[Rfam]
Small nucleolar RNA SNORD125: a 103-nucleotide sequence from Anseranas semipalmata. It scores 73 bits against the family's covariance model. It is annotated as a C/D-box small nucleolar RNA. The family's consensus secondary structure was predicted with WAR. Taxonomically the source falls in Anseranas (Eukaryota, Metazoa, Gnathostomata, Teleostomi).
RNA sequence: CCAGGGAACAGCCUCGCGUGAUGAUCCUUCUCCCUGAUGGCUCCAGCGGUGAUGAGCAUCAAGCCAAAGCCUCUGAGAAGUUGGCUGAGGAGGCUGUUCCCCC
Numbered sequence: 001c002c003a004g005g006g007a008a009c010a011g012c013c014u015c016g017c018g019u020g021a022u023g024a025u026c027c028u029u030c031u032c033c034c035u036g037a038u039g040g041c042u043c044c045a046g047c048g049g050u051g052a053u054g055a056g057c058a059u060c061a062a063g064c065c066a067a068a069g070c071c072u073c074u075g076a077g078a079a080g081u082u083g084g085c086u087g088a089g090g091a092g093g094c095u096g097u098u099c100c101c102c103c
Stems, first nucleotide, its partner, number of pairs: 007098009